Mammalian CPEB3 ribozyme: a 78-nucleotide sequence from Alligator mississippiensis. On this family, see Salehi-Ashtiani et al., Science 2006: "A genomewide search for ribozymes reveals an HDV-like sequence in the human CPEB3 gene". The family's consensus secondary structure is taken from published work. Taxonomically the source falls in Alligator (Eukaryota, Dipnotetrapodomorpha, Amniota, Archelosauria).

RNA sequence: AGCCGCAACUUUGAGGACACAGCAGAAGGGCUCACAAUGUGGCCCUGUCAGAUUUCAAUUAAAUCUGUGAAAUCUGUA
Number, nucleotide and partner (000 for none) at each position: 001a000002g000003c000004c000005g000006c000007a000008a000009c000010u000011u000012u000013g045014a000015g044016g043017a000018c041019a000020c000021a000022g077023c076024a075025g074026a073027a000028g040029g000030g038031c000032u000033c000034a000035c000036a000037a000038u030039g000040u028041g018042g000043c016044c015045c013046u000047g000048u000049c067050a066051g065052a064053u063054u062055u061056c000057a000058a000059u000060u000061a055062a054063a053064u052065c051066u050067g049068u000069g000070a000071a000072a000073u026074c025075u024076g023077u022078a000